[Rfam]
RNA sequence: AUUGGGAAAUGAUGCAAAAUAUGAAUCAGAGGCUGUUUCUGAGAGGCAGUAGCAAGUUUGCUUUGCCUUUGCUGAAAAAUUUACACGCCAAUCUGAUCCCAGG
Numbered sequence: 001a002u003u004g005g006g007a008a009a010u011g012a013u014g015c016a017a018a019a020u021a022u023g024a025a026u027c028a029g030a031g032g033c034u035g036u037u038u039c040u041g042a043g044a045g046g047c048a049g050u051a052g053c054a055a056g057u058u059u060g061c062u063u064u065g066c067c068u069u070u071g072c073u074g075a076a077a078a079a080u081u082u083a084c085a086c087g088c089c090a091a092u093c094u095g096a097u098c099c100c101a102g103g
Stems, first nucleotide, its partner, number of pairs: 002102006
This 103-nucleotide sequence from Phoenix dactylifera belongs to the Rfam family "Small nucleolar RNA Z122". NCBI's taxonomy places the organism under Eukaryota, commelinids, Arecales, Arecaceae, Phoenix. A search with the family's covariance model found it, with a score of 39 bits.